Rfam assigns this 392-nucleotide part of an RNA from Vermiphilus pyriformis to the family "Bacterial large subunit ribosomal RNA".
A search with the family's covariance model found it, with a score of 2717 bits.
Lineage of the source: Bacteria > Bacteria candidate phyla > Candidatus Babelota > Vermiphilus > Vermiphilus pyriformis.
Its family is annotated with structural constituent of ribosome and ribosome in the Gene Ontology.
RNA sequence: GAAAAAAUAGGUGAAAUUCCUAUUCGCCGUAAGCCUAAGGUUUCCGUGAGAACGGUUCAUCCACUCAGGGUUAGUCGAUCCCUAAGCCGAGGCCAAUUGGAGUAGGCGAUGGAAAACAGGUACAAUAUUCCUGUACCACUUAUGAGCGUUUGAGCGAGGGAGUGACGCAGAAAGGUAGGUUAACUUGGCGCAUGGAUGCCAAGCUAAAUGUAAAGAGGUGCUUUAUAGGUAAAUCCGUAGAGCAACAAUCCUUGAAACAUGAUGGGUAUAUCGAUCCGUAAGGAAAGAUGUAUUUGACUGAUCCUACGCUGACUAGAAAAACUUCUAGCGAGCUUUAUGAGUGAUCGUACCGCAAACUGACACAGGUAGGCAGGUAGAGAAUACUAAGGCGU
Numbered sequence: 001g002a003a004a005a006a007a008u009a010g011g012u013g014a015a016a017u018u019c020c021u022a023u024u025c026g027c028c029g030u031a032a033g034c035c036u037a038a039g040g041u042u043u044c045c046g047u048g049a050g051a052a053c054g055g056u057u058c059a060u061c062c063a064c065u066c067a068g069g070g071u072u073a074g075u076c077g078a079u080c081c082c083u084a085a086g087c088c089g090a091g092g093c094c095a096a097u098u099g100g101a102g103u104a105g106g107c108g109a110u111g112g113a114a115a116a117c118a119g120g121u122a123c124a125a126u127a128u129u130c131c132u133g134u135a136c137c138a139c140u141u142a143u144g145a146g147c148g149u150u151u152g153a154g155c156g157a158g159g160g161a162g163u164g165a166c167g168c169a170g171a172a173a174g175g176u177a178g179g180u181u182a183a184c185u186u187g188g189c190g191c192a193u194g195g196a197u198g199c200c201a202a203g204c205u206a207a208a209u210g211u212a213a214a215g216a217g218g219u220g221c222u223u224u225a226u227a228g229g230u231a232a233a234u235c236c237g238u239a240g241a242g243c244a245a246c247a248a249u250c251c252u253u254g255a256a257a258c259a260u261g262a263u264g265g266g267u268a269u270a271u272c273g274a275u276c277c278g279u280a281a282g283g284a285a286a287g288a289u290g291u292a293u294u295u296g297a298c299u300g301a302u303c304c305u306a307c308g309c310u311g312a313c314u315a316g317a318a319a320a321a322c323u324u325c326u327a328g329c330g331a332g333c334u335u336u337a338u339g340a341g342u343g344a345u346c347g348u349a350c351c352g353c354a355a356a357c358u359g360a361c362a363c364a365g366g367u368a369g370g371c372a373g374g375u376a377g378a379g380a381a382u383a384c385u386a387a388g389g390c391g392u
Stems, first nucleotide, its partner, number of pairs: 006024006025391004033371004039351002044069002047067004054062002076347004081112002086107003090103001093100002116134005137343010154329002158326006168311003173305003178299005184203006204265002208260004215253003220243007228236002267292006357366002373385004